A member of the RNA family "Small nucleolar RNA SNORA74" from Myotis myotis, 203 nucleotides long. From the family's description: U19 belongs to the H/ACA class of snoRNAs. snoRNAs bind a number of proteins (including dyskerin, Gar1p and Nop10p in the case of the H/ACA class) to form snoRNP complexes. This class are thought to guide the sites of modification of uridines to pseudouridines by forming direct base pairing interactions with substrate RNAs. A reference for the family is Ganot et al. (1997), "The family of box ACA small nucleolar RNAs is defined by an evolutionarily conserved secondary structure and ubiquitous sequence elements essential for RNA accumulation", Genes Dev. Clan: SNORA74 clan. Taxonomically the source falls in Myotis (Eukaryota, Craniata, Teleostomi, Tetrapoda).
[Rfam]
Nucleotides: 203
Stems, first nucleotide, its partner, number of pairs: 001058009011049002015044006021037003067136002070133006084125002087122001088119004094112007139197007154184001156182001158180006
Number, partner (000 for none) and nucleotide at each position: 001058c002057c003056c004055a005054g006053c007052a008051g009050u010000a011049g012048u013000c014000a015044g016043c017042u018041g019040u020039c021037c022036a023035g024000a025000c026000g027000g028000a029000u030000c031000g032000u033000u034000c035023c036022u037021g038000u039020g040019a041018u042017g043016g044015u045000g046000u047000u048012a049011c050009a051008c052007u053006g054005c055004u056003g057002g058001g059000a060000g061000a062000g063000a064000a065000a066000u067136g068135u069000c070133c071132u072131g073130u074129c075128u076000u077000c078000u079000u080000c081000c082000u083000c084125c085124a086000g087122u088119u089118g090117c091116c092000c093000c094112u095111g096110u097109c098108a099107c100106u101000g102000u103000u104000c105000u106100g107099g108098u109097g110096g111095c112094a113000u114000c115000a116091g117090g118089c119088a120000c121000u122087g123000g124085u125084g126000c127000a128075a129074g130073g131072c132071a133070g134000a135068a136067c137000u138000g139197u140196g141195c142194u143193u144192c145191c146000u147000u148000g149000a150000g151000a152000g153000u154184g155000u156182g157000c158180u159179a160178a161177g162176c163175a164000u165000c166000c167000a168000c169000u170000u171000u172000g173000g174000c175163u176162g177161c178160u179159u180158a181000g182156u183000u184154c185000u186000a187000g188000u189000g190000u191145g192144g193143g194142a195141g196140c197139a198000g199000a200000c201000a202000c203000a